[Rfam]
RNA sequence: AUGGAGACAUGGCAUAAAGCCAGAAGGAGACGCUAACUAGAUUCUCAACUUGAACUGAUUUGCAUCUCAUUUU
Numbered sequence: 001a002u003g004g005a006g007a008c009a010u011g012g013c014a015u016a017a018a019g020c021c022a023g024a025a026g027g028a029g030a031c032g033c034u035a036a037c038u039a040g041a042u043u044c045u046c047a048a049c050u051u052g053a054a055c056u057g058a059u060u061u062g063c064a065u066c067u068c069a070u071u072u073u
Stems, first nucleotide, its partner, number of pairs: 004068004010022004023063001025061002